Rfam assigns this 34-nucleotide RNA sequence from Flavobacterium sasangense to the family "S4-Flavobacteria ribosomal protein leader". It is one of the family's seed sequences. The literature on the family includes a 2020 paper in BMC Microbiol by Eckert and Weinberg, "Discovery of 20 novel ribosomal leader candidates in bacteria and archaea". The source organism's lineage runs through Bacteria, Bacteroidota, Flavobacteriaceae, Flavobacterium and Flavobacterium sasangense. The family's consensus secondary structure is taken from published work.
[Rfam]
RNA sequence: AAUUAUCGAAGGAUAUAGACCUGAAUUCAUAAUU
Numbered sequence: 001a002a003u004u005a006u007c008g009a010a011g012g013a014u015a016u017a018g019a020c021c022u023g024a025a026u027u028c029a030u031a032a033u034u
Stems, first nucleotide, its partner, number of pairs: 001034006008028001010022003